Description:
The record is a 307-nucleotide part of an RNA from Saccharicrinis fermentans, which matches "Bacterial large subunit ribosomal RNA" in Rfam.
RNA sequence: GAUAAUGCGGGCGAGAAACCCGCACGCCGAAAGACUCAGGUUUCCUGAUCAACGCUAAUCGGAUCAGGGUUAGUCGGGACCUAACGCGAACCCGAAAGGGGUAGUGGAUGGAUAGCAGGUUAAUAUUCCUGCACUUCCUGUACAAUAAAAGUGACGUAUUGUUGAGACUGCUAGGUACUGACGGAAUAGUACGUAGAGCCUAGGCUUCGGCCGAAGCGAAGCAGAGCAAACGGUACCGAGAAAAGCGAGUACAGGGACCCGUACCGUAAACGGACACACGUAGUUGGGUUGAGUAUACUGAGGCGCU
Numbered sequence: 001g002a003u004a005a006u007g008c009g010g011g012c013g014a015g016a017a018a019c020c021c022g023c024a025c026g027c028c029g030a031a032a033g034a035c036u037c038a039g040g041u042u043u044c045c046u047g048a049u050c051a052a053c054g055c056u057a058a059u060c061g062g063a064u065c066a067g068g069g070u071u072a073g074u075c076g077g078g079a080c081c082u083a084a085c086g087c088g089a090a091c092c093c094g095a096a097a098g099g100g101g102u103a104g105u106g107g108a109u110g111g112a113u114a115g116c117a118g119g120u121u122a123a124u125a126u127u128c129c130u131g132c133a134c135u136u137c138c139u140g141u142a143c144a145a146u147a148a149a150a151g152u153g154a155c156g157u158a159u160u161g162u163u164g165a166g167a168c169u170g171c172u173a174g175g176u177a178c179u180g181a182c183g184g185a186a187u188a189g190u191a192c193g194u195a196g197a198g199c200c201u202a203g204g205c206u207u208c209g210g211c212c213g214a215a216g217c218g219a220a221g222c223a224g225a226g227c228a229a230a231c232g233g234u235a236c237c238g239a240g241a242a243a244a245g246c247g248a249g250u251a252c253a254g255g256g257a258c259c260c261g262u263a264c265c266g267u268a269a270a271c272g273g274a275c276a277c278a279c280g281u282a283g284u285u286g287g288g289u290u291g292a293g294u295a296u297a298c299u300g301a302g303g304c305g306c307u
Stems, first nucleotide, its partner, number of pairs: 006024006025305004033285004039265002044068006053061002075261004080111002085106003089102001091100003115132005135257009151246002156236004162229003168224005173194001175192004196201001204217005271280002287299003
Record summary
The organism belongs to Saccharicrinis fermentans, within Bacteria.